[Rfam]
RNA: drum RNA
RNA sequence: GGGUGUUGAUGCUGGGAAGCGUGUCAGGAGGAGGGACUCAGCGUAGCCUUGUGUAGGGGUUAGCUAUUUAUACCUCAACCUGACUUAUGCAUGUCAUGUGCAGACAUAAAAAAUAGUGAAU
Number, nucleotide and partner (000 for none) at each position: 001g049002g048003g047004u046005g000006u000007u000008g000009a000010u000011g042012c041013u040014g039015g038016g037017a000018a000019g000020c033021g000022u031023g000024u083025c082026a081027g080028g000029a000030g000031g022032a000033g020034g000035g000036a000037c016038u015039c014040a013041g012042c011043g000044u000045a000046g004047c003048c002049u001050u000051g000052u000053g000054u000055a000056g000057g000058g000059g000060u000061u000062a000063g000064c116065u115066a114067u000068u000069u000070a000071u000072a000073c000074c000075u000076c000077a000078a000079c000080c027081u026082g025083a024084c000085u000086u000087a000088u102089g101090c100091a099092u000093g000094u000095c000096a000097u000098g000099u091100g090101c089102a088103g000104a000105c000106a000107u000108a000109a000110a000111a000112a000113a000114u066115a065116g064117u000118g000119a000120a000121u000